[Rfam]
RNA sequence: UGACGGAAGGACACUACCAGGAGUGGAUUGUGCUGCUUAAUUUAACUCAACGCGGGAAAACUUACCAGGGUCAAGUCUAUCGUAGAUUGGAGACAUGAGGUAGACAAGAGUGGUGCAUGGCCGUUGGAAAUUGAUGGGGCGACUUUUAGCUUAAGUGCUGGAACCAGUGAGAUCUUCUAGACAGGUGUUAUUUAGGCACAGGAGGGAGAAGGCAAUAACAGGUCCGUGAUGCCCUUAGAUAUCCUGGGCAGCAAGCGCAAUACAAUAUCUCUUGAGAAGACAAAGCAAUUUGAGAUGAGUAGGAUUAGCUUUUGUAAAUAAGCUAUGAAUGAGGAAUUCCUAGUAACAGUGUCUCAUCAAGGCAUUGUGAAUGUGUCCCUGUUCUUUGUACACACCGCCCGUCACUAUUUCAGAUGAUUAUAGGGAUGAAGAGCUUAGGCUCUGAAUACCUGUAGUUAGAUAAAGUACAAGUCGUAACAAGGUCACCGUAGGAGAACCUGCUGUGGGAUCAUUA
Dot-bracket structure: (((((.(((((((..((..((((((.((((((((((....(((..........)))........(((((((...((((((.......((....))....))))))...((.((((..(((((((((...((((.((((....))).((((......))))..).)))).....((((....(..(((((.....)))))..).....))))....)))).)))...).))))))).....)))))))...)).)))))))).)...(((((....................)))))....(....((((((........))))))....).....))))).....((((((((.......))))))))......))...)))))))))).))....(..((.(..(((((.(..((((((((((.((..(((((....)))))..)).))))))))))..).)))))...).))...)....((((.(((((....))))).))))........
Shown here is a 514-nucleotide part of an RNA from Ecytonucleospora hepatopenaei, a member of the family "Microsporidia small subunit ribosomal RNA". Taxonomically the source falls in Ecytonucleospora (Eukaryota, Fungi, Microsporidia, Enterocytozoonidae). On this family, see Yusupov et al., Science 2001: "Crystal structure of the ribosome at 5.5 A resolution". Its Rfam clan is "SSU clan".